[Rfam]
RNA sequence: GGAUGGUGGAUGUGGCAUCUGUCACCCCAUUGAUCUCCAGGGUUGAUUCGGCUGAUCUGGCUGGCUAGGCAGGUGUCCCCUUCCUCCCUCACCGCUCCACGUGCAUCCCUUCCAAAGCUGCUCGCUUGGUUGAAGAGGAUGACCUUUCCCAAUAGAGGAGGACCAUUCUUCAGUCAAGGGUAUAUGAGUAGGUAUGCUCCCCUGCUAGAACCUCCAAUCAAGCUCUCAAGGUCCAUUUGUAGGAGAACAUAGGGUAGUCAAGCUUCCAAGACUCUAGACAUAUCCAAAUGAAGUGCUGUAUGUGGCAGUCUGCCUUUCUAU
Numbered sequence: 001g002g003a004u005g006g007u008g009g010a011u012g013u014g015g016c017a018u019c020u021g022u023c024a025c026c027c028c029a030u031u032g033a034u035c036u037c038c039a040g041g042g043u044u045g046a047u048u049c050g051g052c053u054g055a056u057c058u059g060g061c062u063g064g065c066u067a068g069g070c071a072g073g074u075g076u077c078c079c080c081u082u083c084c085u086c087c088c089u090c091a092c093c094g095c096u097c098c099a100c101g102u103g104c105a106u107c108c109c110u111u112c113c114a115a116a117g118c119u120g121c122u123c124g125c126u127u128g129g130u131u132g133a134a135g136a137g138g139a140u141g142a143c144c145u146u147u148c149c150c151a152a153u154a155g156a157g158g159a160g161g162a163c164c165a166u167u168c169u170u171c172a173g174u175c176a177a178g179g180g181u182a183u184a185u186g187a188g189u190a191g192g193u194a195u196g197c198u199c200c201c202c203u204g205c206u207a208g209a210a211c212c213u214c215c216a217a218u219c220a221a222g223c224u225c226u227c228a229a230g231g232u233c234c235a236u237u238u239g240u241a242g243g244a245g246a247a248c249a250u251a252g253g254g255u256a257g258u259c260a261a262g263c264u265u266c267c268a269a270g271a272c273u274c275u276a277g278a279c280a281u282a283u284c285c286a287a288a289u290g291a292a293g294u295g296c297u298g299u300a301u302g303u304g305g306c307a308g309u310c311u312g313c314c315u316u317u318c319u320a321u
Base pairs, nucleotide, nucleotide: 002083003082008080009079014077015076016075017074018073019072020071021070022069023068025064026063027060028059029058032057033056034055035054037051038050106161107160108158109157110156111155112129113128114127115126117125118124130152131151132150137148138147139146191263193261197257198256200254201253202252203251204250212245213244214243215242219239220238221237222236286321288319290316291315293313294312295309296308297307298306299305

A member of the RNA family "7SK RNA" from Monodon monoceros, 321 nucleotides long. The source organism's lineage runs through Eukaryota, Craniata, Artiodactyla, Odontoceti and Monodon. The match comes from Rfam's covariance-model search (293 bits). Rfam describes the family as follows. 7SK was discovered as an abundant small nuclear RNA in the mid-70s but a possible function has only recently been suggested.